[Rfam]
RNA sequence: UUUAUCCUUCGGGGCUGGGUGGAAAUCCCGACCGGCGGUGAUGAAGCGAAUGCUUCUUAGUCCGUGACCCGGUUGCUGAUAUCAGUAAGCGGUGGACCUGGUGAAAAUCCGGGACCGACAGUGAAAGUCUGGAUGGGAGAAGGAAACG
Numbered sequence: 001u002u003u004a005u006c007c008u009u010c011g012g013g014g015c016u017g018g019g020u021g022g023a024a025a026u027c028c029c030g031a032c033c034g035g036c037g038g039u040g041a042u043g044a045a046g047c048g049a050a051u052g053c054u055u056c057u058u059a060g061u062c063c064g065u066g067a068c069c070c071g072g073u074u075g076c077u078g079a080u081a082u083c084a085g086u087a088a089g090c091g092g093u094g095g096a097c098c099u100g101g102u103g104a105a106a107a108u109c110c111g112g113g114a115c116c117g118a119c120a121g122u123g124a125a126a127g128u129c130u131g132g133a134u135g136g137g138a139g140a141a142g143g144a145a146a147c148g
Stems, first nucleotide, its partner, number of pairs: 003146001005144006017029003031128002033117002035065004060115002069092002097113005119131003

The record is a 148-nucleotide RNA from Halalkalibacterium halodurans, which matches "FMN riboswitch aptamer (RFN element)" in Rfam. The family's consensus secondary structure is taken from published work. Rfam's curators write: The RFN element is a highly conserved domain that is found frequently in the 5'-untranslated regions of prokaryotic mRNAs that encode for flavin mononucleotide (FMN) biosynthesis and transport proteins. Rfam 15.1 lists 6,230 matches to the family in 5,120 species.